Actino-pnp RNA: a 70-nucleotide RNA sequence from Microlunatus kandeliicorticis. The family's RNA type in Rfam is cis-regulatory element. A search with the family's covariance model found it, with a score of 60 bits.
RNA sequence: CUCGGUCCUCGGUAGUGGUCUUCGGAGGCUCCUCGACGGAGCCGGCCGCGGACCUCGAUCGAAGACCGGC
Numbered sequence: 001c002u003c004g005g006u007c008c009u010c011g012g013u014a015g016u017g018g019u020c021u022u023c024g025g026a027g028g029c030u031c032c033u034c035g036a037c038g039g040a041g042c043c044g045g046c047c048g049c050g051g052a053c054c055u056c057g058a059u060c061g062a063a064g065a066c067c068g069g070c
Base pairs, nucleotide, nucleotide: 002069003068004067005066006065007064009062010061011060012059013058017054018053019052020051021050023048024047025046027043028042029041030040031039032038